[Rfam]
RNA sequence: AAAAUGCUGUGAUGAAUAAUGAAAUCUACAACGCAUGUCAGACUUCGGAGAUGCCAUUUAUUUGGCAUUGAUGAGAAGAUAUUUCAUACUCUGAGCAAAAU
Dot-bracket structure: (...(((..........................................(((((((......))))))).........................)))...)
Numbered sequence: 001a002a003a004a005u006g007c008u009g010u011g012a013u014g015a016a017u018a019a020u021g022a023a024a025u026c027u028a029c030a031a032c033g034c035a036u037g038u039c040a041g042a043c044u045u046c047g048g049a050g051a052u053g054c055c056a057u058u059u060a061u062u063u064g065g066c067a068u069u070g071a072u073g074a075g076a077a078g079a080u081a082u083u084u085c086a087u088a089c090u091c092u093g094a095g096c097a098a099a100a101u
Stems, first nucleotide, its partner, number of pairs: 001101001005097003050069007